[Rfam]
RNA sequence: AACUCAAUUGUGUAAUAACACACACGAAUCGACACGUACACCGGGGUGCUCUUAUGCGUUUAGGCGCAGCUUUAGAGUCGGUAGUAUGGGAUUCGUGGAGGCAUAAC
Numbered sequence: 001a002a003c004u005c006a007a008u009u010g011u012g013u014a015a016u017a018a019c020a021c022a023c024a025c026g027a028a029u030c031g032a033c034a035c036g037u038a039c040a041c042c043g044g045g046g047u048g049c050u051c052u053u054a055u056g057c058g059u060u061u062a063g064g065c066g067c068a069g070c071u072u073u074a075g076a077g078u079c080g081g082u083a084g085u086a087u088g089g090g091a092u093u094c095g096u097g098g099a100g101g102c103a104u105a106a107c
Stems, first nucleotide, its partner, number of pairs: 023097008035088005040082004048078005

Shown here is a 107-nucleotide sequence from Providencia sneebia, a member of the family "t44 RNA".
A search with the family's covariance model found it, with a score of 81 bits.
For this family Rfam cites "Transcriptome analysis of Escherichia coli using high-density oligonucleotide probe arrays" (Tjaden et al., Nucleic Acids Res, 2002).
Lineage of the source: Bacteria > Pseudomonadota > Gammaproteobacteria > Morganellaceae > Providencia sneebia.
About the family: This family consists of a number of bacterial RNA genes of between 135 and 170 bases in length. The t44 gene has been identified in several species of enteric bacteria but homologs have also been identified in Pseudomonas and Coxiella species.